The record is a 158-nucleotide RNA from Glycine max, which matches "MIR4371 microRNA precursor family" in Rfam.

[Rfam]
RNA sequence: CCGUUAAGUUAUGAGGUGACAGUCGGAGUGCCACAUCAUCAUGCCUUUUCAUGGACACCUCAUUGUCAUAUCAUCACCUUCAAUAAUGUAGCAUUGAUGUGUAAGUGAUUGAGCGUGAUAACAUGACACUUCGUCUCUCACGUCAUCACUUAACGGAA
Numbered sequence: 001c002c003g004u005u006a007a008g009u010u011a012u013g014a015g016g017u018g019a020c021a022g023u024c025g026g027a028g029u030g031c032c033a034c035a036u037c038a039u040c041a042u043g044c045c046u047u048u049u050c051a052u053g054g055a056c057a058c059c060u061c062a063u064u065g066u067c068a069u070a071u072c073a074u075c076a077c078c079u080u081c082a083a084u085a086a087u088g089u090a091g092c093a094u095u096g097a098u099g100u101g102u103a104a105g106u107g108a109u110u111g112a113g114c115g116u117g118a119u120a121a122c123a124u125g126a127c128a129c130u131u132c133g134u135c136u137c138u139c140a141c142g143u144c145a146u147c148a149c150u151u152a153a154c155g156g157a158a
Stems, first nucleotide, its partner, number of pairs: 001156009011146004016141004021136002024133007032125002036121001038119007046111001049108004055102004070087002073084002
The family is grouped with related families in Rfam's "MIR4387 microRNA precursor clan".